[Rfam]
RNA: mir-2060 microRNA precursor family
Organism: Branchiostoma belcheri
RNA sequence: GUUCGCCUAUGUGUGGAUGGUGUUCUGCACCAAGGACAGGAAUGUUUGCCUGUAUGCAGAUGGCGUUCAGCACCAAGGACAGGUCUAUAUGCCU
Numbered sequence: 001g002u003u004c005g006c007c008u009a010u011g012u013g014u015g016g017a018u019g020g021u022g023u024u025c026u027g028c029a030c031c032a033a034g035g036a037c038a039g040g041a042a043u044g045u046u047u048g049c050c051u052g053u054a055u056g057c058a059g060a061u062g063g064c065g066u067u068c069a070g071c072a073c074c075a076a077g078g079a080c081a082g083g084u085c086u087a088u089a090u091g092c093c094u
Stems, first nucleotide, its partner, number of pairs: 005084004010079001018075007027066002030063003034055001036053005042047001